[Rfam]
RNA: Small nucleolar RNA SNORA58
Organism: Anser cygnoides
RNA sequence: CUGCACACCAGUAGACCUUAUCUGGUUCUUCUAAUAGCCAGACGAGGGGGACGGUGCAUGCAAUAAAAACCUGGGGUUGCUGCAGGCUGUCAUCAGCCUUGAUGUGACUGAUUGAACUGCCAUACUCCAACACAG
Numbered sequence: 001c002u003g004c005a006c007a008c009c010a011g012u013a014g015a016c017c018u019u020a021u022c023u024g025g026u027u028c029u030u031c032u033a034a035u036a037g038c039c040a041g042a043c044g045a046g047g048g049g050g051a052c053g054g055u056g057c058a059u060g061c062a063a064u065a066a067a068a069a070c071c072u073g074g075g076g077u078u079g080c081u082g083c084a085g086g087c088u089g090u091c092a093u094c095a096g097c098c099u100u101g102a103u104g105u106g107a108c109u110g111a112u113u114g115a116a117c118u119g120c121c122a123u124a125c126u127c128c129a130a131c132a133c134a135g
Stems, first nucleotide, its partner, number of pairs: 003061003008056001016047004021042004073128004078124001082120002093111004